This 63-nucleotide sequence belongs to the Rfam family "pemK RNA". Pairs were carried over by alignment from the consensus structure, which is taken from published work. The sequence is in the family's curated seed alignment.
RNA sequence: ACAAUGAUACUUCCGUAACUCGCGGCCCGGCCAUGAUGAAGACGGGGAGAUAACAAUCUAUGG
Numbered sequence: 001a002c003a004a005u006g007a008u009a010c011u012u013c014c015g016u017a018a019c020u021c022g023c024g025g026c027c028c029g030g031c032c033a034u035g036a037u038g039a040a041g042a043c044g045g046g047g048a049g050a051u052a053a054c055a056a057u058c059u060a061u062g063g
Stems, first nucleotide, its partner, number of pairs: 012060001013025004026047003030043001032041001048059003